A member of the RNA family "mir-194 microRNA precursor family" from Lepisosteus oculatus, 80 nucleotides long.

[Rfam]
RNA sequence: UGGCACUCGCUGGCUGUAACAGCAACUCCAUGUGGAAGAGCUGUGGUUCCAGUGGAGCUGCUGUUACCUGCAGAGAGGAG
Numbered sequence: 001u002g003g004c005a006c007u008c009g010c011u012g013g014c015u016g017u018a019a020c021a022g023c024a025a026c027u028c029c030a031u032g033u034g035g036a037a038g039a040g041c042u043g044u045g046g047u048u049c050c051a052g053u054g055g056a057g058c059u060g061c062u063g064u065u066a067c068c069u070g071c072a073g074a075g076a077g078g079a080g
Stems, first nucleotide, its partner, number of pairs: 010073003016067008026057006033051003

Description:
A reference for the family is Lagos-Quintana et al. (2003), "New microRNAs from mouse and human", RNA. NCBI's taxonomy places the organism under Eukaryota, Craniata, Vertebrata, Euteleostomi, Lepisosteus.